[Rfam]
RNA: Makes More Granules Regulator RNA (mmgR)
Organism: Agrobacterium fabrum
RNA sequence: UGUAAAUACCCUCCUUGGGUGUUUCCUCCCUAGACUUGACCGCGCUCAGGCGCGGUUUUUUUUGCCCGGC
Numbered sequence: 001u002g003u004a005a006a007u008a009c010c011c012u013c014c015u016u017g018g019g020u021g022u023u024u025c026c027u028c029c030c031u032a033g034a035c036u037u038g039a040c041c042g043c044g045c046u047c048a049g050g051c052g053c054g055g056u057u058u059u060u061u062u063u064g065c066c067c068g069g070c
Base pairs, nucleotide, nucleotide: 008020009019010018011017040055041054042053043052044051045050